[Rfam]
RNA sequence: AAUUAUGUGGUGAAAUUGCGGGAGUGCAAAGCACGUAGCAAUUUCGUAAUAAAAAACAUGAAGGGCAAUAUAGCAUAAAAGCGCAACGAAGUUGUGCGAUAUGCGAAUUAUGUGGUGAAAUUGCGGGAGUGCAAAGCACGUAGCAAUUUCGUAAUA
Numbered sequence: 001a002a003u004u005a006u007g008u009g010g011u012g013a014a015a016u017u018g019c020g021g022g023a024g025u026g027c028a029a030a031g032c033a034c035g036u037a038g039c040a041a042u043u044u045c046g047u048a049a050u051a052a053a054a055a056a057c058a059u060g061a062a063g064g065g066c067a068a069u070a071u072a073g074c075a076u077a078a079a080a081g082c083g084c085a086a087c088g089a090a091g092u093u094g095u096g097c098g099a100u101a102u103g104c105g106a107a108u109u110a111u112g113u114g115g116u117g118a119a120a121u122u123g124c125g126g127g128a129g130u131g132c133a134a135a136g137c138a139c140g141u142a143g144c145a146a147u148u149u150c151g152u153a154a155u156a
Base pairs, nucleotide, nucleotide: 002155003154004153005152006151007150008058009057011055015050016049017048018047019046020045021044022043023042025040026039027038029036063113065111067109068108069107073104074103075102076101081097082096083095084094085093086092087091118149119148120147121146122145123144124143129139130138131137132136
A member of the RNA family "Clostridiales-1 RNA" from Eubacterium sp. AF36-5BH, 156 nucleotides long. It scores 57 bits against the family's covariance model. NCBI's taxonomy places the organism under Bacteria, Clostridia, Eubacteriales, Eubacteriaceae, Eubacterium.